Shown here is a 76-nucleotide sequence from Conger conger, a member of the family "Small nucleolar RNA SNORD66".
For this family Rfam cites "RNomics: an experimental approach that identifies 201 candidates for novel, small, non-messenger RNAs in mouse" (Huttenhofer et al., EMBO J, 2001).
The base pairs follow the family's consensus structure, which was predicted with RNAalifold.
Rfam 15.1 lists 1,346 matches to the family in 614 species.
A search with the family's covariance model found it, with a score of 92 bits.
It is annotated as a C/D-box small nucleolar RNA.
Taxonomically the source falls in Conger (Eukaryota, Craniata, Actinopterygii, Anguilliformes).

RNA sequence: CUCCGGUGAUGACUUCCAUUUUGUGCCACGUGUCUGGGCCACUGAAAUGCUGUGAUGGGAAUGAGGAACUGAGGAG
Numbered sequence: 001c002u003c004c005g006g007u008g009a010u011g012a013c014u015u016c017c018a019u020u021u022u023g024u025g026c027c028a029c030g031u032g033u034c035u036g037g038g039c040c041a042c043u044g045a046a047a048u049g050c051u052g053u054g055a056u057g058g059g060a061a062u063g064a065g066g067a068a069c070u071g072a073g074g075a076g
Stems, first nucleotide, its partner, number of pairs: 001076004